[Rfam]
Nucleotides: 292
Stems, first nucleotide, its partner, number of pairs: 015024003032290009043279001045276001047274007055266005061260004065251002068248005074243001076242003080239002086237008095225002098223005105215008114153003118149002121146004126141006154159001161206005170199001172197003179190003
Number, partner (000 for none) and nucleotide at each position: 001000g002000u003000c004000a005000c006000a007000a008000u009000c010000a011000c012000c013000c014000c015024c016023c017022c018000u019000u020000a021000c022017g023016g024015g025000g026000g027000c028000a029000u030000g031000u032290g033289g034288g035287a036286a037285a038284u039283g040282g041000g042000a043279c044000a045276u046000a047274g048273g049272g050271u051270c052269g053268g054000a055266u056265u057264a058263g059262u060000g061260g062259a063258c064257c065251g066250g067000a068248u069247u070246c071245a072244g073000u074243g075000u076242u077241a078240g079000c080239u081238g082000c083000u084000u085000a086237c087236u088235g089234g090233c091232u092231u093230g094000c095225c096224c097000g098223u099222u100221c101220u102219a103000a104000a105215c106214c107213g108212a109211g110210a111209g112208u113000u114153g115152g116151g117000c118149c119148u120000u121146g122145u123144g124143g125000u126141u127140u128139g129138g130137a131136c132000g133000a134000a135000a136131g137130u138129c139128u140127g141126g142000c143124c144123c145122a146121c147000u148119g149118g150000a151116c152115u153114c154159c155000u156000a157000g158000c159154g160000u161206g162205g163204a164203g165202g166000g167000u168000a169000a170199u171000g172197c173196g174195u175000g176000a177000g178000g179190c180189u181188g182000g183000u184000u185000u186000c187000a188181c189180a190179g191000a192000g193000c194000a195174g196173c197172g198000a199170a200000u201000a202165c203164c204163u205162c206161c207000c208112g209111c210110u211109c212108u213107c214106g215105g216000c217000a218000g219102u220101g221100g222099a223098a224096g225095g226000a227000u228000a229000u230093c231092g232091g233090g234089c235088c236087g237086g238081u239080g240078c241077u242076a243074c244072c245071u246070g247069g248068g249000c250066c251065c252000a253000u254000c255000a256000u257064g258063g259062u260061u261000a262059a263058c264057u265056g266055g267000g268053u269052u270051g271050a272049c273048u274047u275000a276045a277000u278000a279043g280000g281000a282040c283039c284038a285037u286036u287035u288034c289033u290032u291000u292000a